[Rfam]
A member of the RNA family "Plant signal recognition particle RNA" from Cucumis sativus, 305 nucleotides long.
The source organism's lineage runs through Eukaryota, Viridiplantae, Spermatophyta, rosids and Cucumis.
The literature on the family includes a 2003 paper in Nucleic Acids Res by Rosenblad et al., "SRPDB: Signal Recognition Particle Database".
It is annotated as a non-coding RNA gene.
RNA sequence: GCCGAGCUCGGUAGUGUGAGCUUGUAACUCGAACGGGGGCACUAAUGUGGCUGGAGGUUGGUCCAGCUCACCGAGUAGGGUAUUUGCGAGAUAUAUUAUGGCCUGCCCAUUCCAAGUAGAGAGUUGGGCGUUGGGCUUCGAGCGAAGGCUUGGAGAUCAUUGCCACUAGAGACGGAGGAAACCGCGUGAGGCUGGUUUCACAGAGCAGCGUAACCUCCCACUCUUGUCGGUGGAAGGAUUACAGGCCGUUUCUCGGUUGCCCAUCGAAUACUCUGUGGGUAGUUCUCAUCCCAACAUCCACUUUU
Number, nucleotide and partner (000 for none) at each position: 001g040002c039003c038004g023005a022006g021007c020008u019009c018010g017011g000012u000013a000014g000015u000016g000017u010018g009019a008020g007021c006022u005023u004024g000025u000026a000027a000028c037029u036030c035031g000032a000033a000034c000035g030036g029037g028038g003039g002040c001041a000042c000043u000044a304045a303046u000047g301048u300049g299050g298051c000052u296053g295054g000055a000056g292057g291058u000059u288060g287061g284062u000063c282064c000065a280066g000067c000068u278069c277070a276071c275072c000073g273074a272075g271076u270077a269078g262079g261080g260081u259082a258083u000084u256085u255086g000087c000088g254089a253090g252091a000092u000093a250094u000095a000096u000097u000098a249099u248100g247101g246102c245103c244104u243105g242106c000107c237108c236109a000110u235111u234112c233113c232114a231115a000116g228117u000118a000119g225120a224121g223122a222123g221124u220125u000126g000127g164128g163129c162130g161131u000132u159133g158134g157135g000136c155137u154138u153139c152140g151141a150142g149143c148144g000145a000146a000147g000148g143149c142150u141151u140152g139153g138154a137155g136156a000157u134158c133159a132160u000161u130162g129163c128164c127165a000166c171167u000168a000169g000170a000171g166172a000173c000174g218175g217176a216177g215178g214179a000180a000181a000182c000183c000184g211185c210186g209187u208188g000189a000190g000191g000192c203193u202194g201195g000196u000197u000198u000199c000200a000201c194202a193203g192204a000205g000206c000207a000208g187209c186210g185211u184212a000213a000214c178215c177216u176217c175218c174219c000220a124221c123222u122223c121224u120225u119226g000227u000228c116229g000230g000231u114232g113233g112234a111235a110236g108237g107238a000239u000240u000241a000242c105243a104244g103245g102246c101247c100248g099249u098250u093251u000252c090253u089254c088255g085256g084257u000258u082259g081260c080261c079262c078263a000264u000265c000266g000267a000268a000269u077270a076271c075272u074273c073274u000275g071276u070277g069278g068279g000280u065281a000282g063283u000284u061285c000286u000287c060288a059289u000290c000291c057292c056293a000294a000295c053296a052297u000298c050299c049300a048301c047302u000303u045304u044305u000